[Rfam]
RNA sequence: UGCCGUGGACGACCACGGCGUGCAUGCCCACGGUGGCGGGACGACCCGC
Numbered sequence: 001u002g003c004c005g006u007g008g009a010c011g012a013c014c015a016c017g018g019c020g021u022g023c024a025u026g027c028c029c030a031c032g033g034u035g036g037c038g039g040g041a042c043g044a045c046c047c048g049c
Stems, first nucleotide, its partner, number of pairs: 001020008036049005

Rfam assigns this 49-nucleotide sequence from Paraburkholderia saeva to the family "Guanidine-II riboswitch aptamer (mini-ykkC)". Simpler in structure and has fewer highly conserved nucleotide positions than the ykkC-yxkD leader. Despite this each of its two stem-loop structures directly bind free guanidine. Therefore, mini-ykkC RNA motif represents a distinct class of guanidine-sensing RNAs. Its crystal structure was also determined. It scores 40 bits against the family's covariance model.